[Rfam]
The record is a 164-nucleotide sequence from Artemisia annua, which matches "small nucleolar RNA snoR143" in Rfam.
The literature on the family includes a 2009 paper in Nucleic Acids Res by Chen and Wu, "Mining small RNA sequencing data: a new approach to identify small nucleolar RNAs in Arabidopsis".
The family's consensus secondary structure was predicted with RNAalifold.
The family's RNA type in Rfam is H/ACA-box small nucleolar RNA.
It scores 66 bits against the family's covariance model.
Gene Ontology terms of the family: nucleolus and RNA processing.
RNA sequence: UUAGGGGGAUUUGAGUCAUUGGAUUUGAUCCAAUGGCUCAAAUCAAAAGCUUUGUUUUUUAUGUUAUGUCAAAAAUGAGGCAGCGGCCAGACAACCGUAGAGAUGGUAUCCACAGAUUAACAGUUUUUGCAAUCUGUUUUUCUACUAAAUUCUAUCUCACAUUA
Numbered sequence: 001u002u003a004g005g006g007g008g009a010u011u012u013g014a015g016u017c018a019u020u021g022g023a024u025u026u027g028a029u030c031c032a033a034u035g036g037c038u039c040a041a042a043u044c045a046a047a048a049g050c051u052u053u054g055u056u057u058u059u060u061a062u063g064u065u066a067u068g069u070c071a072a073a074a075a076u077g078a079g080g081c082a083g084c085g086g087c088c089a090g091a092c093a094a095c096c097g098u099a100g101a102g103a104u105g106g107u108a109u110c111c112a113c114a115g116a117u118u119a120a121c122a123g124u125u126u127u128u129g130c131a132a133u134c135u136g137u138u139u140u141u142c143u144a145c146u147a148a149a150u151u152c153u154a155u156c157u158c159a160c161a162u163u164a
Stems, first nucleotide, its partner, number of pairs: 003051002008044001010042015100158007108150001119139002121136003